[Rfam]
The family of this 79-nucleotide RNA from Nodularia spumigena is "Photosynthesis regulatory RNA1". It is annotated as a small RNA. The organism belongs to Nodularia spumigena, within Bacteria. The literature on the family includes a 2014 paper in Plant Cell by Georg et al., "The small regulatory RNA SyR1/PsrR1 controls photosynthetic functions in cyanobacteria". The base pairs follow the family's consensus structure, which was predicted with CMfinder.
RNA sequence: AUGAAAUUGUCAACUUAGGACUUGCUCAUCGUCAUUUGGACUUCUCCUUUCAACCUCGGUUAGUUUCGCCGGGGUUUUU
Numbered sequence: 001a002u003g004a005a006a007u008u009g010u011c012a013a014c015u016u017a018g019g020a021c022u023u024g025c026u027c028a029u030c031g032u033c034a035u036u037u038g039g040a041c042u043u044c045u046c047c048u049u050u051c052a053a054c055c056u057c058g059g060u061u062a063g064u065u066u067c068g069c070c071g072g073g074g075u076u077u078u079u
Stems, first nucleotide, its partner, number of pairs: 053075008